[Rfam]
RNA sequence: GCAAAAGUCUUGAUGAGGACAUGGGCAUUCUAGUUUGGUUUGCAGAGAGGGAAGGCAGGGCUGAAACCUUCCUAACAGAAUAGAAGUGCUUACCGCCUCUGAACUUCAGCAAUGAAAGCAAGCAGCCGGGAAAUGUUCCGGUUCGCGCAAGUAUUUGCUGGCGGCAGCAGCCGUUAUCUGAACCAGAGCCGUUUUUAAACUGAUGUGUUUAAAAAUGGAAAAUUGGGUGGAACCGCGUGUGAGUAAACUCGUCCCUUUU
Numbered sequence: 001g002c003a004a005a006a007g008u009c010u011u012g013a014u015g016a017g018g019a020c021a022u023g024g025g026c027a028u029u030c031u032a033g034u035u036u037g038g039u040u041u042g043c044a045g046a047g048a049g050g051g052a053a054g055g056c057a058g059g060g061c062u063g064a065a066a067c068c069u070u071c072c073u074a075a076c077a078g079a080a081u082a083g084a085a086g087u088g089c090u091u092a093c094c095g096c097c098u099c100u101g102a103a104c105u106u107c108a109g110c111a112a113u114g115a116a117a118g119c120a121a122g123c124a125g126c127c128g129g130g131a132a133a134u135g136u137u138c139c140g141g142u143u144c145g146c147g148c149a150a151g152u153a154u155u156u157g158c159u160g161g162c163g164g165c166a167g168c169a170g171c172c173g174u175u176a177u178c179u180g181a182a183c184c185a186g187a188g189c190c191g192u193u194u195u196u197a198a199a200c201u202g203a204u205g206u207g208u209u210u211a212a213a214a215a216u217g218g219a220a221a222a223u224u225g226g227g228u229g230g231a232a233c234c235g236c237g238u239g240u241g242a243g244u245a246a247a248c249u250c251g252u253c254c255c256u257u258u259u
Base pairs, nucleotide, nucleotide: 007104008103015099016098017097018096028085029084030083031082038076039075040074049073050072051071052070053069054068107160108159109158110157111156112155162173163172164171189218190217191216192215193214194213195212196211197210198209199208200207225255226254227253235252236251237250239248
About this RNA:
The family of this 259-nucleotide RNA sequence from Bacillus sp. T33-2 is "T-box leader". By type it is a cis-regulatory leader. A reference for the family is Gerdeman et al. (2003), "Solution structure of the Bacillus subtilis T-box antiterminator RNA: seven nucleotide bulge characterized by stacking and flexibility", J Mol Biol. About the family: Uncharged tRNA acts as the effector for transcription antitermination of genes in the T-box leader family.